The family of this 102-nucleotide RNA sequence from Clostridium botulinum is "Purine riboswitch aptamer".

[Rfam]
RNA sequence: UCAUAUAUCAUAUAAAAAGCUCGUAUAUCAUCGGUAAUAUGGUCCGAAAGUUUCUACCUGCUAACCAUAAAUUAGCAGACUACGGGGUAUUGUGUAUUUAGU
Numbered sequence: 001u002c003a004u005a006u007a008u009c010a011u012a013u014a015a016a017a018a019g020c021u022c023g024u025a026u027a028u029c030a031u032c033g034g035u036a037a038u039a040u041g042g043u044c045c046g047a048a049a050g051u052u053u054c055u056a057c058c059u060g061c062u063a064a065c066c067a068u069a070a071a072u073u074a075g076c077a078g079a080c081u082a083c084g085g086g087g088u089a090u091u092g093u094g095u096a097u098u099u100a101g102u
Stems, first nucleotide, its partner, number of pairs: 018088001020086006031047004058078007
Dot-bracket structure: .................(.((((((.....((((.........))))..........(((((((.......)))))))..)))))).)..............

Rfam's curators put it in the seed alignment.